[Rfam]
RNA sequence: GGUAUGAUUUUUAAUCCCACGAUAAGCCCCGGAACUUAUUGUGAUUAAAUAUGCGAAUGUACUUUUUUAAAAAAAUG
Numbered sequence: 001g002g003u004a005u006g007a008u009u010u011u012u013a014a015u016c017c018c019a020c021g022a023u024a025a026g027c028c029c030c031g032g033a034a035c036u037u038a039u040u041g042u043g044a045u046u047a048a049a050u051a052u053g054c055g056a057a058u059g060u061a062c063u064u065u066u067u068u069a070a071a072a073a074a075a076u077g
Base pairs, nucleotide, nucleotide: 008073009072010071011070012069013068014067018043019042020041021040022039023038024037025036026035
RNA: Ribosomal protein L13 leader
Organism: Niallia endozanthoxylica